This 100-nucleotide RNA from Peribacillus asahii belongs to the Rfam family "Purine riboswitch aptamer". Rfam's curators write: Riboswitches are metabolite binding domains within certain messenger RNAs that serve as precision sensors for their corresponding targets. Allosteric rearrangement of mRNA structure is mediated by ligand binding, and this results in modulation of gene expression. A class of riboswitches that selectively recognises guanine and becomes saturated at concentrations as low as 5 nM. In Bacillus subtilis, this mRNA motif is located on at least five separate transcriptional units that together encode 17 genes that are mostly involved in purine transport and purine nucleotide biosynthesis. It has also been shown that some members of this family are specific for adenine instead. Hence this family are termed purine riboswitches. The source organism's lineage runs through Bacteria, Bacillota, Caryophanales, Bacillaceae and Peribacillus.
[Rfam]
RNA sequence: AAAAGAAAAAUCAUGUUCAUUCGUAUAUUCUCAGUGAUACGGUCUGAGAGUUUCUACUAGGAGCCGAAAAUUCCUAACUACGAAUGGGUAGUUCAACCUG
Numbered sequence: 001a002a003a004a005g006a007a008a009a010a011u012c013a014u015g016u017u018c019a020u021u022c023g024u025a026u027a028u029u030c031u032c033a034g035u036g037a038u039a040c041g042g043u044c045u046g047a048g049a050g051u052u053u054c055u056a057c058u059a060g061g062a063g064c065c066g067a068a069a070a071u072u073c074c075u076a077a078c079u080a081c082g083a084a085u086g087g088g089u090a091g092u093u094c095a096a097c098c099u100g
Stems, first nucleotide, its partner, number of pairs: 018086008029049006058076006